This 86-nucleotide RNA sequence from Macaca mulatta belongs to the Rfam family "Small nucleolar RNA SNORD115". A reference for the family is Cavaille et al. (2000), "Identification of brain-specific and imprinted small nucleolar RNA genes exhibiting an unusual genomic organization", Proc Natl Acad Sci U S A.

RNA sequence: AAGCCAACGUAAAUAUAUGAAUAAAGAGUAUCUUCAGGAGACAUAAUAAUGCAAAAAUCAUGCUCAAUAGGAUUAAGCUGAGGCUC
Number, nucleotide and partner (000 for none) at each position: 001a000002a085003g084004c083005c080006a079007a000008c077009g000010u000011a000012a000013a000014u000015a000016u000017a000018u000019g000020a000021a000022u000023a000024a000025a000026g000027a000028g000029u000030a000031u000032c000033u000034u000035c000036a000037g000038g000039a000040g000041a000042c000043a000044u000045a000046a000047u000048a000049a000050u000051g000052c000053a000054a000055a000056a000057a000058u000059c000060a000061u000062g000063c000064u000065c000066a000067a000068u000069a000070g000071g000072a000073u000074u000075a000076a000077g008078c000079u006080g005081a000082g000083g004084c003085u002086c000